[Rfam]
RNA sequence: GCAGCAAGCCAUCUUAUCGCUUCCUUUUUAACCGAAGGAAGAGGAAAGUCCGGGCAGCGUAGAGCACCGUGCUACCUAACGGGUAGGCAGUUAACUGGCGACGGUUAACUGACAGCUAGUACCACAGAAAAGAUACCGCUUUUCUUCGGAAGAGUAAGGGUGAAAAGGUAGGGUAAGAGCCUACCGCUCCUUUGGUGACAAAGGAGGCAGGGCAAACCUCACGGGCUGAAAGACCAAAUAAACCAGUGGUACCCGCAAGGGUCGAAGGGCUGCUCGUCCGGUGCUGGUGGGUAGGUCGUUAGAGGCGUCGGGUGACUGGCGUCCUAGAUAAAUGAUAAGACGUUUUUGUGUAACAGCAAAGAUGACAGAACCCGGCUUAUCGGCUUGUUUUUUUC
Numbered sequence: 001g002c003a004g005c006a007a008g009c010c011a012u013c014u015u016a017u018c019g020c021u022u023c024c025u026u027u028u029u030a031a032c033c034g035a036a037g038g039a040a041g042a043g044g045a046a047a048g049u050c051c052g053g054g055c056a057g058c059g060u061a062g063a064g065c066a067c068c069g070u071g072c073u074a075c076c077u078a079a080c081g082g083g084u085a086g087g088c089a090g091u092u093a094a095c096u097g098g099c100g101a102c103g104g105u106u107a108a109c110u111g112a113c114a115g116c117u118a119g120u121a122c123c124a125c126a127g128a129a130a131a132g133a134u135a136c137c138g139c140u141u142u143u144c145u146u147c148g149g150a151a152g153a154g155u156a157a158g159g160g161u162g163a164a165a166a167g168g169u170a171g172g173g174u175a176a177g178a179g180c181c182u183a184c185c186g187c188u189c190c191u192u193u194g195g196u197g198a199c200a201a202a203g204g205a206g207g208c209a210g211g212g213c214a215a216a217c218c219u220c221a222c223g224g225g226c227u228g229a230a231a232g233a234c235c236a237a238a239u240a241a242a243c244c245a246g247u248g249g250u251a252c253c254c255g256c257a258a259g260g261g262u263c264g265a266a267g268g269g270c271u272g273c274u275c276g277u278c279c280g281g282u283g284c285u286g287g288u289g290g291g292u293a294g295g296u297c298g299u300u301a302g303a304g305g306c307g308u309c310g311g312g313u314g315a316c317u318g319g320c321g322u323c324c325u326a327g328a329u330a331a332a333u334g335a336u337a338a339g340a341c342g343u344u345u346u347u348g349u350g351u352a353a354c355a356g357c358a359a360a361g362a363u364g365a366c367a368g369a370a371c372c373c374g375g376c377u378u379a380u381c382g383g384c385u386u387g388u389u390u391u392u393u394u395c
Stems, first nucleotide, its partner, number of pairs: 001391001003389008011380001012340007020041008046378003050375005055228004062275004067224005072086005087113001088111010114219002119217002122212002136159002138155007167185006186208001187206008232297004242288006267279004304323008